[Rfam]
RNA: Small nucleolar RNA SNORD101
RNA sequence: GUUUUGAAUGAUGACUCACUUUAAAAAGUCGGAUACCCCUUCACUCUUACUAUGAGUGAGAAUAAUAGUCUGACAAAC
Dot-bracket structure: ((.(((...................................................................)))))
Numbered sequence: 001g002u003u004u005u006g007a008a009u010g011a012u013g014a015c016u017c018a019c020u021u022u023a024a025a026a027a028g029u030c031g032g033a034u035a036c037c038c039c040u041u042c043a044c045u046c047u048u049a050c051u052a053u054g055a056g057u058g059a060g061a062a063u064a065a066u067a068g069u070c071u072g073a074c075a076a077a078c
Stems, first nucleotide, its partner, number of pairs: 001078002004076003